[Rfam]
RNA sequence: GCCCUUCCAUCGGCGGGUCCCACCCCCUAUAUUGAUCCUGUUCGGGUUCGCCCGGACUAUGGGGAUAAACGCGCACGUAAUAAGCGGACUGGACCCGGGUGCGAUUCCCGGCGGCUCCACCAAUCUCUCCCGAGUUAUCACGGGACUGCAUGGGGCCGAUCAGCAUCGACAGACGUGUAAAGGUGUUAUGCUUUCUCUCGGCGUGGCUCACCGUAUCGGGCCGCUAAACUAACUGCGAACGAUAACUUCGCUGAAGAGUUCGCUAUCGCCGCGUAAUGCGGUGCUAGUGAAUUCGCGCCUUAAGUCCUAGGGGUUCAGAUCCUUAGGCGGGGCCCGGAGGGAGCCUGCCAACAGAAUCCCUCCACU
Numbered sequence: 001g002c003c004c005u006u007c008c009a010u011c012g013g014c015g016g017g018u019c020c021c022a023c024c025c026c027c028u029a030u031a032u033u034g035a036u037c038c039u040g041u042u043c044g045g046g047u048u049c050g051c052c053c054g055g056a057c058u059a060u061g062g063g064g065a066u067a068a069a070c071g072c073g074c075a076c077g078u079a080a081u082a083a084g085c086g087g088a089c090u091g092g093a094c095c096c097g098g099g100u101g102c103g104a105u106u107c108c109c110g111g112c113g114g115c116u117c118c119a120c121c122a123a124u125c126u127c128u129c130c131c132g133a134g135u136u137a138u139c140a141c142g143g144g145a146c147u148g149c150a151u152g153g154g155g156c157c158g159a160u161c162a163g164c165a166u167c168g169a170c171a172g173a174c175g176u177g178u179a180a181a182g183g184u185g186u187u188a189u190g191c192u193u194u195c196u197c198u199c200g201g202c203g204u205g206g207c208u209c210a211c212c213g214u215a216u217c218g219g220g221c222c223g224c225u226a227a228a229c230u231a232a233c234u235g236c237g238a239a240c241g242a243u244a245a246c247u248u249c250g251c252u253g254a255a256g257a258g259u260u261c262g263c264u265a266u267c268g269c270c271g272c273g274u275a276a277u278g279c280g281g282u283g284c285u286a287g288u289g290a291a292u293u294c295g296c297g298c299c300u301u302a303a304g305u306c307c308u309a310g311g312g313g314u315u316c317a318g319a320u321c322c323u324u325a326g327g328c329g330g331g332g333c334c335c336g337g338a339g340g341g342a343g344c345c346u347g348c349c350a351a352c353a354g355a356a357u358c359c360c361u362c363c364a365c366u
Base pairs, nucleotide, nucleotide: 040057041056042055043054044053045052046051061198062197063196064195065194071191072190073189074185075184076183085175086174089172090171091170095111096110097109098108099107112158113157114156115155116154117153118152199213200212201211204223205222206221207220208219209218330346331345332344333343336363337362338361339360340359341358
The record is a 366-nucleotide RNA sequence from Caulobacter sp. K31, which matches "Alphaproteobacteria transfer-messenger RNA" in Rfam. Rfam describes the family as follows. Bacterial tmRNA, also known as 10Sa RNA or SsrA, is named for its dual tRNA and mRNA-like properties. Its role is to liberate the mRNA from a stalled ribosome. To accomplish this part of the tmRNA is used as a reading frame that ends in a translation stop signal. The broken mRNA is replaced in the ribosome by the tmRNA and translation of the tmRNA leads to addition of a proteolysis tag to the incomplete protein enabling recognition by a protease. Recently a number of permuted tmRNA genes have been found encoded in two parts. tmRNAs have been identified in eubacteria and some chloroplasts but are absent from archaeal and eukaryote nuclear genomes. The family's RNA type in Rfam is non-coding RNA gene. Taxonomically the source falls in Caulobacter (Bacteria, Pseudomonadati, Caulobacterales, Caulobacteraceae). Rfam links the family to the GO term RNA catabolic process.